[Rfam]
DABA-DC-AT RNA: a 166-nucleotide RNA sequence from Vibrio xiamenensis. It scores 130 bits against the family's covariance model.

RNA sequence: GUAAUCUCGGACGUUAAUAGUUUUUAAACGAUUUCUGGGGGAUACGCGUAGUGAACAUUCGGGCUGAUUGUGCCACUACGUAGGGUAGGUACCGGCAAAACUCUUUUUGACGGUAGACGGGAUACUUAAUGUCGAAUAAAUCGGCAUGUGAAUGGGAAACCCAACA
Numbered sequence: 001g002u003a004a005u006c007u008c009g010g011a012c013g014u015u016a017a018u019a020g021u022u023u024u025u026a027a028a029c030g031a032u033u034u035c036u037g038g039g040g041g042a043u044a045c046g047c048g049u050a051g052u053g054a055a056c057a058u059u060c061g062g063g064c065u066g067a068u069u070g071u072g073c074c075a076c077u078a079c080g081u082a083g084g085g086u087a088g089g090u091a092c093c094g095g096c097a098a099a100a101c102u103c104u105u106u107u108u109g110a111c112g113g114u115a116g117a118c119g120g121g122a123u124a125c126u127u128a129a130u131g132u133c134g135a136a137u138a139a140a141u142c143g144g145c146a147u148g149u150g151a152a153u154g155g156g157a158a159a160c161c162c163a164a165c166a
Base pairs, nucleotide, nucleotide: 006039007038008037009036010035011034046081047080048079049078050077051076052075053074055071056070057069090115091114092113093112094111096109097108098107099106130146131145132144133143134142135141
Rfam classes the family as a cis-regulatory element.